[Rfam]
RNA sequence: GUGCGGGCAAUGCCCACACACUCCUCACACCCCCCGGCCCGGCGCGCUCGGGCUUU
Numbered sequence: 001g002u003g004c005g006g007g008c009a010a011u012g013c014c015c016a017c018a019c020a021c022u023c024c025u026c027a028c029a030c031c032c033c034c035c036g037g038c039c040c041g042g043c044g045c046g047c048u049c050g051g052g053c054u055u056u
Base pairs, nucleotide, nucleotide: 001019002018003017005015006014007013008012036054037053038052039051040050041049042048
RNA: Cyanobacterial functional RNA 1
Organism: Parasynechococcus marenigrum